[Rfam]
RNA sequence: ACACGGGAAAGGAGGUGGUCCAGAGUUGAAUACUUUCAGGACGCGUGAGGUGGCUGCGGUCUAGCAGCAACCGGCCAGUCCCGUACUCCGUAGUACUGCUGGCAAUUCCAACGCAGACACCCGACCCGCAGGUGAUCCGGCCCACGUCCGGCCGGAGGGGAGCCCCGUAAGGGGCGCCACACCUGCGGGUCGU
Numbered sequence: 001a002c003a004c005g006g007g008a009a010a011g012g013a014g015g016u017g018g019u020c021c022a023g024a025g026u027u028g029a030a031u032a033c034u035u036u037c038a039g040g041a042c043g044c045g046u047g048a049g050g051u052g053g054c055u056g057c058g059g060u061c062u063a064g065c066a067g068c069a070a071c072c073g074g075c076c077a078g079u080c081c082c083g084u085a086c087u088c089c090g091u092a093g094u095a096c097u098g099c100u101g102g103c104a105a106u107u108c109c110a111a112c113g114c115a116g117a118c119a120c121c122c123g124a125c126c127c128g129c130a131g132g133u134g135a136u137c138c139g140g141c142c143c144a145c146g147u148c149c150g151g152c153c154g155g156a157g158g159g160g161a162g163c164c165c166c167g168u169a170a171g172g173g174g175c176g177c178c179a180c181a182c183c184u185g186c187g188g189g190u191c192g193u
Base pairs, nucleotide, nucleotide: 015057016056017055018054019053061102062101063100064099065098067096069094072090073089074088122192123191124190125189126188127187128186129185130184131183132182133181134180136156137155138154139153140152141151
Annotation: Rfam assigns this 193-nucleotide RNA sequence from Nocardioides agariphilus to the family "Actinobacteria sRNA Ms_IGR-5". It scores 96 bits against the family's covariance model. The base pairs follow the family's consensus structure. Lineage of the source: Bacteria > Bacillati > Actinomycetota > Propionibacteriales > Nocardioides. By type it is a small RNA.